The family of this 247-nucleotide RNA sequence from Streptomyces dysideae is "Streptomyces sRNA 4677". By type it is a small RNA. The organism belongs to Streptomyces, within Bacteria. For this family Rfam cites "Complex intra-operonic dynamics mediated by a small RNA in Streptomyces coelicolor" (Hindra et al., PLoS One, 2014).
RNA sequence: UGCUCCGGUGGCACGAGCGAUCUCCCCCAAGAAACACGAGAGGGAAAGAACCCGACCAAACCCCACCCCUCCCUCCCACCCGCAGCGCAAACUCACCCAAGCGGGUGAACAUCACCAACUCGGCUGGAUUCGGGGCAGGUUGUCUGCCUUACGCUCGCCGCAACACAACCGCAGACAUACGACGGCCCCCGCCGGGACGGCAAUCCCAGUGCGAGGGCCUGACCACCAAGGAAGAAAGCCCUUCCCG
Numbered sequence: 001u002g003c004u005c006c007g008g009u010g011g012c013a014c015g016a017g018c019g020a021u022c023u024c025c026c027c028c029a030a031g032a033a034a035c036a037c038g039a040g041a042g043g044g045a046a047a048g049a050a051c052c053c054g055a056c057c058a059a060a061c062c063c064c065a066c067c068c069c070u071c072c073c074u075c076c077c078a079c080c081c082g083c084a085g086c087g088c089a090a091a092c093u094c095a096c097c098c099a100a101g102c103g104g105g106u107g108a109a110c111a112u113c114a115c116c117a118a119c120u121c122g123g124c125u126g127g128a129u130u131c132g133g134g135g136c137a138g139g140u141u142g143u144c145u146g147c148c149u150u151a152c153g154c155u156c157g158c159c160g161c162a163a164c165a166c167a168a169c170c171g172c173a174g175a176c177a178u179a180c181g182a183c184g185g186c187c188c189c190c191g192c193c194g195g196g197a198c199g200g201c202a203a204u205c206c207c208a209g210u211g212c213g214a215g216g217g218c219c220u221g222a223c224c225a226c227c228a229a230g231g232a233a234g235a236a237a238g239c240c241c242u243u244c245c246c247g
Stems, first nucleotide, its partner, number of pairs: 007227004017079001019077001093108006123159001125157003184219005190213003194207004230245005

From the family's description: Located in the intergenic region between anti-sigma factor SCO4677 gene and a putative regulatory protein gene SCO4676. scr4677 expression requires the SCO4677 activity and scr4677 sRNA itself seem to affect the levels of the SCO4676-associated transcripts.